S. aureus tsr24 small RNA: a 226-nucleotide RNA from Pseudoclavibacter sp. RFBA6. Taxonomically the source falls in Pseudoclavibacter (Bacteria, Bacillati, Actinomycetes, Micrococcales). A reference for the family is Carroll et al. (2016), "Genome-wide Annotation, Identification, and Global Transcriptomic Analysis of Regulatory or Small RNA Gene Expression in Staphylococcus aureus", MBio.
RNA sequence: AAUCUUUAUACAUAAGGCACCUCGUUAAUUUAGUUUAGUGACAUUUAUUAAAUUAUACGAAAGUGCCUUAUUUUUUUAAAGUAUUUCAAUGUAAAAUUACAUAUAAAUACAAAGUAUUUUGGCGAGACUCUUGAGGGAACAGGACAAGCUGAAGACUACAGGCUGAAGCUGUCCCCUAAGAAAGCGAGCCAACAAUACGUAGUAUUGUAAAUAAAGAAGCCAGUAA
Number, nucleotide and partner (000 for none) at each position: 001a206002a205003u000004c000005u000006u000007u000008a000009u000010a000011c000012a000013u000014a000015a000016g000017g000018c000019a000020c000021c040022u000023c000024g039025u038026u037027a036028a035029u000030u000031u000032a000033g000034u000035u028036u027037a026038g025039u024040g021041a000042c065043a064044u063045u062046u061047a000048u060049u059050a054051a000052a000053u000054u050055a000056u000057a000058c000059g049060a048061a046062a045063g044064u043065g042066c000067c000068u000069u000070a000071u000072u000073u000074u000075u000076u000077u000078a000079a000080a000081g000082u204083a203084u202085u201086u000087c199088a000089a000090u000091g100092u099093a098094a000095a000096a000097u000098u093099a092100c091101a000102u111103a000104u109105a000106a000107a000108u000109a104110c000111a102112a000113a000114g198115u197116a196117u195118u194119u192120u191121g190122g189123c188124g000125a000126g000127a000128c000129u181130c180131u179132u178133g000134a177135g176136g175137g174138a000139a172140c171141a000142g169143g000144a000145c000146a000147a164148g163149c162150u161151g000152a000153a000154g000155a000156c000157u000158a000159c000160a000161g150162g149163c148164u147165g000166a000167a000168g000169c142170u000171g140172u139173c000174c137175c136176c135177u134178a132179a131180g130181a129182a000183a000184g000185c000186g000187a000188g123189c122190c121191a120192a119193c000194a118195a117196u116197a115198c114199g087200u000201a085202g084203u083204a082205u002206u001207g000208u000209a000210a000211a000212u000213a000214a000215a000216g000217a000218a000219g000220c000221c000222a000223g000224u000225a000226a000